Overview:
This 330-nucleotide RNA sequence from Pelusios castaneus belongs to the Rfam family "Nuclear RNase P". NCBI's taxonomy places the organism under Eukaryota, Metazoa, Craniata, Amniota, Pelusios.
RNA sequence: GUCAGAGGGAAGCUCACUGCUGAGGUCACGUGCAGGGUGCUUGUCACUCACUGGCUAACGCCUCUGGGAAGGUCUGAGACAAGAGCCACUAGCUGCCCUAGCAGGGUGUCACCUGCUGCAGGUGAAUGAGUUACCAGCAAUGGUGGGCUCUGGGGGUGGGGCCCAAAUUGGGCAGGAGAAACUAGGGGAAGUCCCUCUAGUGGAUGCCCAGCCCCCUCCUAUGGGUUUGGGACAGACUCAUAGCUGGCCUGGUGAGUCCAAUGGGAUGAGGUGAGACCUGCAAGCUACAUGCAGGCCUUAUAACCUAAUUCAGACUACUCUCCCUCUGAC
Dot-bracket structure: ((((...(((..[[[[[[...((((.........(((((.....)))))...........)))).........(((((.....(((.......(((((.....)))))((((((.....))))))(((((((..............(((..........................................................................)))........))))))).)))..................]].]]]](((((.((((((.......)))))).))))).......))))).......)))...))))
Numbered sequence: 001g002u003c004a005g006a007g008g009g010a011a012g013c014u015c016a017c018u019g020c021u022g023a024g025g026u027c028a029c030g031u032g033c034a035g036g037g038u039g040c041u042u043g044u045c046a047c048u049c050a051c052u053g054g055c056u057a058a059c060g061c062c063u064c065u066g067g068g069a070a071g072g073u074c075u076g077a078g079a080c081a082a083g084a085g086c087c088a089c090u091a092g093c094u095g096c097c098c099u100a101g102c103a104g105g106g107u108g109u110c111a112c113c114u115g116c117u118g119c120a121g122g123u124g125a126a127u128g129a130g131u132u133a134c135c136a137g138c139a140a141u142g143g144u145g146g147g148c149u150c151u152g153g154g155g156g157u158g159g160g161g162c163c164c165a166a167a168u169u170g171g172g173c174a175g176g177a178g179a180a181a182c183u184a185g186g187g188g189a190a191g192u193c194c195c196u197c198u199a200g201u202g203g204a205u206g207c208c209c210a211g212c213c214c215c216c217u218c219c220u221a222u223g224g225g226u227u228u229g230g231g232a233c234a235g236a237c238u239c240a241u242a243g244c245u246g247g248c249c250u251g252g253u254g255a256g257u258c259c260a261a262u263g264g265g266a267u268g269a270g271g272u273g274a275g276a277c278c279u280g281c282a283a284g285c286u287a288c289a290u291g292c293a294g295g296c297c298u299u300a301u302a303a304c305c306u307a308a309u310u311c312a313g314a315c316u317a318c319u320c321u322c323c324c325u326c327u328g329a330c
Stems, first nucleotide, its partner, number of pairs: 001330004008323003013270004017265002022064004035049005074313005084245003094108005109125006126241007147226003271301005277295006